A member of the RNA family "nhaA-I RNA" from Metapseudomonas resinovorans, 60 nucleotides long.
[Rfam]
RNA sequence: GGGUGUCUGGCUGCCCUGUGAGCGGCCAGACAGGUUUCAUGUGUUGGUCGGGCCGCCGCA
Numbered sequence: 001g002g003g004u005g006u007c008u009g010g011c012u013g014c015c016c017u018g019u020g021a022g023c024g025g026c027c028a029g030a031c032a033g034g035u036u037u038c039a040u041g042u043g044u045u046g047g048u049c050g051g052g053c054c055g056c057c058g059c060a
Stems, first nucleotide, its partner, number of pairs: 005031010042060003046057003
Rfam describes the family as follows. Acidobacteria, Alphaproteobacteria, Betaproteobacteria and Gammaproteobacteria, Verrucomicrobia, cand. division NC10.